[Rfam]
This 119-nucleotide RNA from Microtus ochrogaster belongs to the Rfam family "Small nucleolar RNA SNORA40". The literature on the family includes a 1997 paper in J Mol Biol by Ofengand and Bakin, "Mapping to nucleotide resolution of pseudouridine residues in large subunit ribosomal RNAs from representative eukaryotes, prokaryotes, archaebacteria, mitochondria and chloroplasts". The family's consensus secondary structure was predicted with RNAalifold. Rfam describes the family as follows. The snoRNA ACA 40 belongs to the H/ACA family of snoRNAs and guides the pseudouridylation of 28S rRNA subunit at position U4565. The source organism's lineage runs through Eukaryota, Bilateria, Deuterostomia, Euteleostomi and Microtus. The family has 28 seed sequences and 2,550 matches in Rfam 15.1.
RNA sequence: GUAAUACUUGUCUGUUUGUUGGACUUAUGCACAAAGACUUCAUAGAGGAUACAAAAGUAAUAGUCUUUUGCAACCCAGAAAUCAUUGUUCAGUAUGUGUUGAUACAUACAGGAGAGAUU
Numbered sequence: 001g002u003a004a005u006a007c008u009u010g011u012c013u014g015u016u017u018g019u020u021g022g023a024c025u026u027a028u029g030c031a032c033a034a035a036g037a038c039u040u041c042a043u044a045g046a047g048g049a050u051a052c053a054a055a056a057g058u059a060a061u062a063g064u065c066u067u068u069u070g071c072a073a074c075c076c077a078g079a080a081a082u083c084a085u086u087g088u089u090c091a092g093u094a095u096g097u098g099u100u101g102a103u104a105c106a107u108a109c110a111g112g113a114g115a116g117a118u119u
Base pairs, nucleotide, nucleotide: 001052002051004050005049007047008046009045014038015035016034017033018032019031024029062119063118064117065116066113067112068111069110070109076101077100078099080097083096084095085094